A member of the RNA family "Small nucleolar RNA SNORA1" from Pogona vitticeps, 135 nucleotides long. The family's RNA type in Rfam is H/ACA-box small nucleolar RNA. It scores 85 bits against the family's covariance model. The family's consensus secondary structure was predicted with PFOLD. About the family: ACA1 is a member of the H/ACA class of snoRNA that guide the sites of modification of uridines to pseudouridines.
[Rfam]
RNA sequence: GGCCUUGUUGAGGUGGUAAAUAUGGGCACACUUUACUUUUGUGUCCCAGUUGAUCAAUGAGGCUACAGAAAAACAGGUUAUGCUUCCAUCAUUGUAAGGCCAGUUACACUGGUGACAAUGAGGCCUGUAAUAAGA
Dot-bracket structure: .(((.(((...............((((((...........))))))..........))).))).........(((((.........(((((..................))))).........))))).......